[Rfam]
RNA sequence: UUUAUUAAAAUUAAUGUAGGACCUACACUUUGGAAAUACAACUCACAUAAAGUGGUGGGACAUACAUUAAUUUCACUCAA
Number, nucleotide and partner (000 for none) at each position: 001u080002u079003u000004a077005u000006u075007a000008a073009a072010a071011u070012u069013a068014a067015u066016g065017u064018a063019g000020g000021a000022c000023c058024u057025a056026c054027a053028c052029u051030u050031u049032g048033g000034a000035a000036a000037u000038a000039c000040a000041a000042c000043u000044c000045a000046c000047a000048u032049a031050a030051a029052g028053u027054g026055g000056u025057g024058g023059g000060a000061c000062a000063u018064a017065c016066a015067u014068u013069a012070a011071u010072u009073u008074c000075a006076c000077u004078c000079a002080a001
RNA: MIR5269 microRNA precursor family
Organism: Medicago truncatula